[Rfam]
RNA sequence: CCCUAGCCCCGAUAGAAGCGGCAUCCUUUUUUGUGAUGCCUGAGCGCAGUCGAAGGUGUCACAAAAAAGAUACAGCGGAUAGCGGGAUUAGGC
Dot-bracket structure: ........(((.((...((...(((...(((((((((((((............)))))))))))))..)))...))...)).)))........
Shown here is a 93-nucleotide sequence from Chryseobacterium aquaeductus, a member of the family "Flavo-1 RNA". It scores 72 bits against the family's covariance model. It is annotated as a small RNA.